[Rfam]
RNA sequence: UUUCGGUUGCGAGAUUUUGGGGGCGAGAUGAGCUUAAUUGAAAUCCAACUGGCCCGCAAAGUCCCGCUUCCAACA
Dot-bracket structure: ..(.((...((.(.(((((.((((.((.((...............)).)).)))).))))).).))...)).)..
The family of this 75-nucleotide RNA from Synaphobranchus kaupii is "mir-193 microRNA precursor family". The family's consensus secondary structure was predicted with RNAalifold. A search with the family's covariance model found it, with a score of 56 bits. Rfam links the family to the GO terms miRNA-mediated post-transcriptional gene silencing and RISC complex.